[Rfam]
RNA sequence: UAAAACUAUGAUGAGGUUAGCGAUCCCAAGCGGGGCCUGGCCCUGCGUUGCAGACAACGCAUCACCGCUCUGACCUU
Numbered sequence: 001u002a003a004a005a006c007u008a009u010g011a012u013g014a015g016g017u018u019a020g021c022g023a024u025c026c027c028a029a030g031c032g033g034g035g036c037c038u039g040g041c042c043c044u045g046c047g048u049u050g051c052a053g054a055c056a057a058c059g060c061a062u063c064a065c066c067g068c069u070c071u072g073a074c075c076u077u
Base pairs, nucleotide, nucleotide: 009064010063011062012061013060016055017054018053020051021050022049023048024047030046031045032044033043034042035041036040
This 77-nucleotide RNA sequence from Giardia duodenalis belongs to the Rfam family "Giardia snoRNA GlsR16".
On this family, see Saraiya and Wang, PLoS Pathog 2008: "snoRNA, a novel precursor of microRNA in Giardia lamblia".
Its family is annotated with nucleolus and RNA processing in the Gene Ontology.
Taxonomically the source falls in Giardia (Eukaryota, Fornicata, Diplomonadida, Giardiinae).
The family's RNA type in Rfam is C/D-box small nucleolar RNA.